[Rfam]
RNA sequence: AACCCUACUCUGGGAAGGUGCCAUUCUGAGGGCCAGGAGUUUGAUUACAUGUCACUCUGGCUGCUAUGGCCCCCUCCUAGGGUCUGGGC
Numbered sequence: 001a002a003c004c005c006u007a008c009u010c011u012g013g014g015a016a017g018g019u020g021c022c023a024u025u026c027u028g029a030g031g032g033c034c035a036g037g038a039g040u041u042u043g044a045u046u047a048c049a050u051g052u053c054a055c056u057c058u059g060g061c062u063g064c065u066a067u068g069g070c071c072c073c074c075u076c077c078u079a080g081g082g083u084c085u086g087g088g089c
Base pairs, nucleotide, nucleotide: 003088004087005086008082009081010080011079012078013077014076015075017073018072020070021069022068023067024066031062032061033060034059035058037057038056039055040054041051
The family of this 89-nucleotide sequence from Rhinopithecus bieti is "mir-3085 microRNA precursor family".
The source organism's lineage runs through Eukaryota, Theria, Primates, Simiiformes and Rhinopithecus.
Its family is annotated with RISC complex and miRNA-mediated post-transcriptional gene silencing in the Gene Ontology.
The match comes from Rfam's covariance-model search (88 bits).